[Rfam]
RNA sequence: GUCGGAAUUGCGCGGGUUGUAAUCGACGAACGCAUAGCCGCGCGACUGGUCGAUGGUGUGGAACAGCGGGUUCCAGUCGAACAUCACCAGCAUGUAGCUGGGCAGGGUGUUGGCCACGAACAUCUUGCCCGACGCGAUCAUGUUCGCCCGCUG
Numbered sequence: 001g002u003c004g005g006a007a008u009u010g011c012g013c014g015g016g017u018u019g020u021a022a023u024c025g026a027c028g029a030a031c032g033c034a035u036a037g038c039c040g041c042g043c044g045a046c047u048g049g050u051c052g053a054u055g056g057u058g059u060g061g062a063a064c065a066g067c068g069g070g071u072u073c074c075a076g077u078c079g080a081a082c083a084u085c086a087c088c089a090g091c092a093u094g095u096a097g098c099u100g101g102g103c104a105g106g107g108u109g110u111u112g113g114c115c116a117c118g119a120a121c122a123u124c125u126u127g128c129c130c131g132a133c134g135c136g137a138u139c140a141u142g143u144u145c146g147c148c149c150g151c152u153g
Base pairs, nucleotide, nucleotide: 004033008030009029013025014024015023037057038056039055040054041052042051064153065152066151067150068149070082071081072080073079087146089144090143091142092141093140094139098134101130102129103127104126105125106124107123108122110119111118112117

Shown here is a 153-nucleotide RNA sequence from Salipiger aestuarii, a member of the family "Ruegeria cis2 sRNA". Gene Ontology term of the family: regulation of gene expression. The source organism's lineage runs through Bacteria, Alphaproteobacteria, Rhodobacterales, Roseobacteraceae and Salipiger. The match comes from Rfam's covariance-model search (106 bits). Rfam classes the family as a small RNA. Pairs were carried over by alignment from the consensus structure, which was predicted with RNAfold.